[Rfam]
Nucleotides: 081
Stems, first nucleotide, its partner, number of pairs: 008073013022059001024057006033048003
Number, partner (000 for none) and nucleotide at each position: 001000a002000g003000g004000c005000c006000c007000g008073g009072a010071g011070a012069g013068a014067g015066a016065g017064g018063c019062a020061g021000a022059a023000u024057c025056u026055g027054a028053u029052c030000c031000a032000c033048a034047g035046u036000c037000u038000c039000u040000g041000u042000g043000g044000c045000a046035g047034c048033u049000u050000u051000u052029g053028a054027u055026c056025a057024g058000c059022u060000g061020u062019u063018g064017c065016c066015u067014c068013u069012c070011u071010c072009u073008c074000u075000c076000c077000a078000g079000a080000c081000u
This 81-nucleotide RNA sequence from Pipistrellus kuhlii belongs to the Rfam family "mir-574 microRNA precursor family". Rfam 15.1 lists 4,084 matches to the family in 7 species. The organism belongs to Pipistrellus, within Eukaryota. The base pairs follow the family's consensus structure, which was predicted with RNAalifold. The match comes from Rfam's covariance-model search (84 bits).